[Rfam]
RNA sequence: CCUUGUAUCGGUACGUCCAUUGACUCGAAUGAUCCAGUGCUGAUGGCAGGAUAACUUAAUAAAAACAGCUACCUACUGGAUAUGGAAGAUGCAAUCCCAGAACGGAGGAAAUUCCUACAGGGCUGCAGUUAGAUUUCUAUUACCUUUUUUGAAGUGAUCAA
Number, nucleotide and partner (000 for none) at each position: 001c050002c049003u048004u000005g000006u000007a044008u043009c042010g041011g040012u039013a038014c031015g030016u029017c000018c027019a000020u000021u000022g000023a000024c000025u000026c000027g018028a000029a016030u015031g014032a081033u080034c079035c078036a077037g076038u013039g012040c011041u010042g009043a008044u007045g000046g000047c000048a003049g002050g001051a000052u000053a000054a000055c000056u000057u000058a000059a000060u000061a000062a000063a000064a000065a000066c000067a000068g155069c154070u153071a000072c151073c000074u000075a000076c037077u036078g035079g034080a033081u032082a000083u000084g000085g000086a000087a000088g129089a000090u127091g126092c125093a000094a000095u000096c000097c000098c000099a000100g000101a000102a000103c000104g115105g114106a113107g000108g000109a000110a000111a000112u000113u106114c105115c104116u000117a000118c000119a000120g000121g000122g000123c000124u000125g092126c091127a090128g000129u088130u000131a000132g000133a000134u000135u000136u000137c000138u000139a000140u000141u000142a000143c000144c000145u000146u000147u000148u000149u000150u000151g072152a000153a070154g069155u068156g000157a000158u000159c000160a000161a000